A member of the RNA family "6S / SsrS RNA" from Desulfarculus baarsii, 183 nucleotides long. By type it is a non-coding RNA gene. E. coli 6S RNA was the first non coding RNA to be sequenced, but its function was unknown until recently. It consists of 184 nucleotides that fold into an extended hairpin structure with a large single-stranded internal bulge. The 6S RNA specifically associates with RNA polymerase holoenzyme containing the sigma70 specificity factor. This interaction represses expression from a sigma70-dependent promoter during stationary phase. 6S RNA homologs have recently been identified in most bacterial genomes. Many Gram-positive species have two copies of 6S RNA. In Bacillus subtilis, both copies appear to interact with RNA polymerase holoenzyme containing the housekeeping sigma factor and be expressed during different stages of growth. In many proteobacteria, 6S RNA may be processed from a transcript encoding homologs of the E. coli YgfA protein which is a putative 5-formyltetrahydrofolate cycloligase activity.

RNA sequence: UAAUCCCUGCGCUGUUCGUGGACUGGCAAGAAGCAUUUUUGAGCCAACACUUAUAUAAAGGGCCCAAUGCCACUGAGCCAUGGGGGCGGCGCCGCACGCGGAUGCCCGAACCGGCCUCACGCCGGGCCCACCUGUUUCGACAGGUUCAAAACACGCUUGCCGCACGGCAGAGGCGGGGAUCUU
Numbered sequence: 001u002a003a004u005c006c007c008u009g010c011g012c013u014g015u016u017c018g019u020g021g022a023c024u025g026g027c028a029a030g031a032a033g034c035a036u037u038u039u040u041g042a043g044c045c046a047a048c049a050c051u052u053a054u055a056u057a058a059a060g061g062g063c064c065c066a067a068u069g070c071c072a073c074u075g076a077g078c079c080a081u082g083g084g085g086g087c088g089g090c091g092c093c094g095c096a097c098g099c100g101g102a103u104g105c106c107c108g109a110a111c112c113g114g115c116c117u118c119a120c121g122c123c124g125g126g127c128c129c130a131c132c133u134g135u136u137u138c139g140a141c142a143g144g145u146u147c148a149a150a151a152c153a154c155g156c157u158u159g160c161c162g163c164a165c166g167g168c169a170g171a172g173g174c175g176g177g178g179a180u181c182u183u
Base pairs, nucleotide, nucleotide: 003180004179005178006177007176008175009174010173012170013169014168015167017166018165019164037151038150040148041147042146043145044144045143060129061128062127064125065124068121069120075118076117077116078114079113086105087104092101093100094099
Dot-bracket structure: ..((((((((.((((.(((.................((.((((((..............(((.((..((.....(((((......((....(((....)))..)).......)).))).))..)).))).............)))))).))............)))))))..))))))))...